[Rfam]
RNA sequence: AUGCCCAGUGAUUAUAAAAAGACGCGUUAUUCUGAGGAACAAAACCUGCCACCAGUCUUUCUUCUGUCUUUUACUCUGUCUUUGAUCUCUUAUCUUCCUCCACUCCCUCUCUCUUUUUUUCAAACUGGUAGCUGGUCCGCUGAAUGCGAUUAUGAGAUAUGAGGGCAU
Numbered sequence: 001a002u003g004c005c006c007a008g009u010g011a012u013u014a015u016a017a018a019a020a021g022a023c024g025c026g027u028u029a030u031u032c033u034g035a036g037g038a039a040c041a042a043a044a045c046c047u048g049c050c051a052c053c054a055g056u057c058u059u060u061c062u063u064c065u066g067u068c069u070u071u072u073a074c075u076c077u078g079u080c081u082u083u084g085a086u087c088u089c090u091u092a093u094c095u096u097c098c099u100c101c102a103c104u105c106c107c108u109c110u111c112u113c114u115u116u117u118u119u120u121c122a123a124a125c126u127g128g129u130a131g132c133u134g135g136u137c138c139g140c141u142g143a144a145u146g147c148g149a150u151u152a153u154g155a156g157a158u159a160u161g162a163g164g165g166c167a168u
Stems, first nucleotide, its partner, number of pairs: 001168006035083003039079003
RNA: Small nucleolar RNA SNORD97